Description
This 184-nucleotide RNA sequence from Cytobacillus solani belongs to the Rfam family "6S / SsrS RNA". Rfam describes the family as follows. E. coli 6S RNA was the first non coding RNA to be sequenced, but its function was unknown until recently. It consists of 184 nucleotides that fold into an extended hairpin structure with a large single-stranded internal bulge. The base pairs follow the family's consensus structure, which is taken from published work.
RNA sequence: CAGAAGCUGCGUUGUUCGCUUGUAUAUGAAGUUUCAACCUUUAUUUAGAAUGAGGGAGUUCAAUAUCAUUGCUGGAACAUCAUGCCUCCAUUUGAUGAGGACGAAUGAGAAAGCAAUUGCGGACACCCACCUGUUGGAGCAGGUAUGAAACUCCGUAUAAAUCGGCGGCAAAGGCGGCUAUACA
Numbered sequence: 001c002a003g004a005a006g007c008u009g010c011g012u013u014g015u016u017c018g019c020u021u022g023u024a025u026a027u028g029a030a031g032u033u034u035c036a037a038c039c040u041u042u043a044u045u046u047a048g049a050a051u052g053a054g055g056g057a058g059u060u061c062a063a064u065a066u067c068a069u070u071g072c073u074g075g076a077a078c079a080u081c082a083u084g085c086c087u088c089c090a091u092u093u094g095a096u097g098a099g100g101a102c103g104a105a106u107g108a109g110a111a112a113g114c115a116a117u118u119g120c121g122g123a124c125a126c127c128c129a130c131c132u133g134u135u136g137g138a139g140c141a142g143g144u145a146u147g148a149a150a151c152u153c154c155g156u157a158u159a160a161a162u163c164g165g166c167g168g169c170a171a172a173g174g175c176g177g178c179u180a181u182a183c184a
Stems, first nucleotide, its partner, number of pairs: 003181001005179006012171004017167003030152007037144003054128003058124004065118001068117006079106002085100004
It scores 80 bits against the family's covariance model.